Rfam assigns this 211-nucleotide RNA sequence from Streptomyces sp. NRRL WC-3618 to the family "Streptomyces RNA 1601". From the family's description: Identified by deep sequencing of transcriptome at the end of exponential growth phase. It is annotated as a small RNA.
RNA sequence: AACGACCGGCUGGACACUUGCGUGCCCGGCCCACAAGUGGAGGCUCCGAUCUCCCACCCGACCGCCCUCACGGACGGCGGGUCACCCGGUCAGACGGCCACCAUCGUUCCGUACGGACGAUGGAGUCGUCCGAUGUGCGCCCCGCGGUUGACCGCGGCGGUGCUCCGGUAUGCCUUUGGAGCCCCGCCUGUGUCCCGUCGGGGCAUUUUUU
Numbered sequence: 001a002a003c004g005a006c007c008g009g010c011u012g013g014a015c016a017c018u019u020g021c022g023u024g025c026c027c028g029g030c031c032c033a034c035a036a037g038u039g040g041a042g043g044c045u046c047c048g049a050u051c052u053c054c055c056a057c058c059c060g061a062c063c064g065c066c067c068u069c070a071c072g073g074a075c076g077g078c079g080g081g082u083c084a085c086c087c088g089g090u091c092a093g094a095c096g097g098c099c100a101c102c103a104u105c106g107u108u109c110c111g112u113a114c115g116g117a118c119g120a121u122g123g124a125g126u127c128g129u130c131c132g133a134u135g136u137g138c139g140c141c142c143c144g145c146g147g148u149u150g151a152c153c154g155c156g157g158c159g160g161u162g163c164u165c166c167g168g169u170a171u172g173c174c175u176u177u178g179g180a181g182c183c184c185c186g187c188c189u190g191u192g193u194c195c196c197g198u199c200g201g202g203g204c205a206u207u208u209u210u211u
Stems, first nucleotide, its partner, number of pairs: 004091006012027002028083005034060001037057004041052002062077003066073002093130003097127001101123008139204006146195002153192003156188005162182005